[Rfam]
RNA: Small nucleolar RNA SNORD121A
Organism: Mus musculus
RNA sequence: ACCCAGGAAACAGUGAUGUAGUGACGUCCAAGCACAUAGCUGAUGAUUCCAUGUAGAGUUUAACUGCUGAGUUUCCUGGCU
Numbered sequence: 001a002c003c004c005a006g007g008a009a010a011c012a013g014u015g016a017u018g019u020a021g022u023g024a025c026g027u028c029c030a031a032g033c034a035c036a037u038a039g040c041u042g043a044u045g046a047u048u049c050c051a052u053g054u055a056g057a058g059u060u061u062a063a064c065u066g067c068u069g070a071g072u073u074u075c076c077u078g079g080c081u
Stems, first nucleotide, its partner, number of pairs: 001081001003079004008074004